[Rfam]
RNA sequence: GGCGGUUCUUGAGUGACGCACCCUGGAACCAGAGAGGGGGGACCCCGAUUCCGGGGUGCAUCACCCGAGAACUGCC
Numbered sequence: 001g002g003c004g005g006u007u008c009u010u011g012a013g014u015g016a017c018g019c020a021c022c023c024u025g026g027a028a029c030c031a032g033a034g035a036g037g038g039g040g041g042a043c044c045c046c047g048a049u050u051c052c053g054g055g056g057u058g059c060a061u062c063a064c065c066c067g068a069g070a071a072c073u074g075c076c
Stems, first nucleotide, its partner, number of pairs: 002075002005072007013064004019058005025052004030047001032045001
Dot-bracket structure: .((.(((((((.((((..(((((.((((.(.(............).).)))).)))))..)))).))))))).)).